HNH endonuclease-associated RNA and ORF (HEARO) RNA: a 221-nucleotide RNA sequence from Chloroflexales bacterium ZM16-3. The organism belongs to Chloroflexales, within Bacteria. For this family Rfam cites "Exceptional structured noncoding RNAs revealed by bacterial metagenome analysis" (Weinberg et al., Nature, 2009). The family's consensus secondary structure is taken from published work. Rfam classes the family as a non-coding RNA gene.

[Rfam]
RNA sequence: GUCAGUAACCGCAGGGGUUAAAACCCUGCGGCUUGUGGAGUAAUCAACAAGCCUGUGCUGACCAGACUCAGCCCUUCACGGGGCUACGCACAACGGGUCACGACACCUUCCGGUGCGUUGCCAGCCGGUCGCGCUGUCGUCGGUGAUCACACCCACCUGGGGUAAGGGUGGGAGGUCGCAGGCACGACAAGCCCGCUGUGCAUUGUCGAGGCGAACCUUAC
Number, nucleotide and partner (000 for none) at each position: 001g062002u061003c060004a059005g058006u057007a056008a000009c000010c031011g000012c028013a027014g000015g000016g000017g024018u023019u000020a000021a000022a000023a018024c017025c000026c000027u013028g012029c000030g000031g010032c051033u050034u049035g048036u000037g000038g000039a000040g000041u000042a000043a000044u000045c000046a000047a000048c035049a034050a033051g032052c000053c000054u000055g000056u007057g006058c005059u004060g003061a002062c001063c000064a000065g207066a206067c205068u000069c000070a085071g084072c083073c082074c081075u000076u000077c000078a000079c000080g000081g074082g073083g072084c071085u070086a000087c000088g201089c200090a199091c198092a197093a000094c195095g194096g193097g192098u191099c000100a000101c000102g000103a137104c136105a000106c000107c131108u000109u000110c128111c127112g126113g125114u124115g217116c000117g000118u214119u213120g212121c211122c210123a000124g114125c113126c112127g111128g110129u000130c000131g107132c000133g000134c000135u000136g104137u103138c000139g183140u182141c181142g000143g179144u178145g177146a176147u175148c000149a000150c174151a000152c172153c171154c170155a169156c168157c167158u166159g000160g000161g000162g000163u000164a000165a000166g158167g157168g156169u155170g154171g153172g152173a000174g150175g147176u146177c145178g144179c143180a000181g141182g140183c139184a000185c000186g000187a000188c000189a000190a000191g098192c097193c096194c095195g094196c000197u092198g091199u090200g089201c088202a000203u000204u000205g067206u066207c065208g000209a000210g122211g121212c120213g119214a118215a000216c000217c115218u000219u000220a000221c000